[Rfam]
RNA sequence: UUGCCCAAUGAUUAUAGCAAGACGCGUUAUUAUGAGGACUAAUGCUGGAACUCUUUCUUCUACUUCUCCUCUUCUUCCUCCUACUUUGUCCCUUCCUCUUCCACCUUACCCUCACUUUCCUUAGGGUAUCCAGCGUCCCAUGAGCAAGACUGAGAUAUGAGGGCAA
Numbered sequence: 001u002u003g004c005c006c007a008a009u010g011a012u013u014a015u016a017g018c019a020a021g022a023c024g025c026g027u028u029a030u031u032a033u034g035a036g037g038a039c040u041a042a043u044g045c046u047g048g049a050a051c052u053c054u055u056u057c058u059u060c061u062a063c064u065u066c067u068c069c070u071c072u073u074c075u076u077c078c079u080c081c082u083a084c085u086u087u088g089u090c091c092c093u094u095c096c097u098c099u100u101c102c103a104c105c106u107u108a109c110c111c112u113c114a115c116u117u118u119c120c121u122u123a124g125g126g127u128a129u130c131c132a133g134c135g136u137c138c139c140a141u142g143a144g145c146a147a148g149a150c151u152g153a154g155a156u157a158u159g160a161g162g163g164c165a166a
Stems, first nucleotide, its partner, number of pairs: 001166006035054003040049001